[Rfam]
The record is a 109-nucleotide sequence from Glycine max, which matches "MIR4387 microRNA precursor family" in Rfam. Taxonomically the source falls in Glycine subgen. Soja (Eukaryota, Streptophyta, Mesangiospermae, fabids). Clan: MIR4387 microRNA precursor clan. Gene Ontology terms of the family: miRNA-mediated post-transcriptional gene silencing and RISC complex.
RNA sequence: GAGUAUCACAUCAUCAUGUCUUAUCACGGACACCUCAUUGUCAUGUUAUCACCUUCAAUAAUGUGUCAAUAACGUGUCGGUGACAAGACAUGAUAAUAUGAUACUUUAU
Number, nucleotide and partner (000 for none) at each position: 001g000002a000003g104004u103005a102006u101007c100008a099009c000010a097011u096012c000013a094014u093015c092016a091017u090018g089019u088020c087021u086022u000023a000024u083025c082026a081027c080028g000029g078030a077031c076032a075033c074034c000035u072036c000037a070038u069039u068040g067041u000042c065043a064044u063045g062046u061047u060048a059049u058050c000051a000052c000053c000054u000055u000056c000057a000058a049059u048060a047061a046062u045063g044064u043065g042066u000067c040068a039069a038070u037071a000072a035073c000074g033075u032076g031077u030078c029079g000080g027081u026082g025083a024084c000085a000086a021087g020088a019089c018090a017091u016092g015093a014094u013095a000096a011097u010098a000099u008100g007101a006102u005103a004104c003105u000106u000107u000108a000109u000